Background: The record is an 84-nucleotide RNA from Schinkia azotoformans, which matches "ZMP/ZTP riboswitch aptamer (pfl RNA motif)" in Rfam. The source organism's lineage runs through Bacteria, Bacillati, Bacillaceae, Schinkia and Schinkia azotoformans. The literature on the family includes a 2015 paper in Nat Struct Mol Biol by Jones and Ferre-D'Amare, "Recognition of the bacterial alarmone ZMP through long-distance association of two RNA subdomains".
RNA sequence: AAAGCUAUAUGUGACUGGCGAGACGCGGACGAACCGCGAGGGAGCAUAUAGUGACGGAAAUGGCCGUUCGCCUGGGCUGAGGUA
Numbered sequence: 001a002a003a004g005c006u007a008u009a010u011g012u013g014a015c016u017g018g019c020g021a022g023a024c025g026c027g028g029a030c031g032a033a034c035c036g037c038g039a040g041g042g043a044g045c046a047u048a049u050a051g052u053g054a055c056g057g058a059a060a061u062g063g064c065c066g067u068u069c070g071c072c073u074g075g076g077c078u079g080a081g082g083u084a
Base pairs, nucleotide, nucleotide: 004052005051006050007049008048009047010046011045012044015041016040017072018071019070020069021068025037026036027035028034061079062078063077064076065075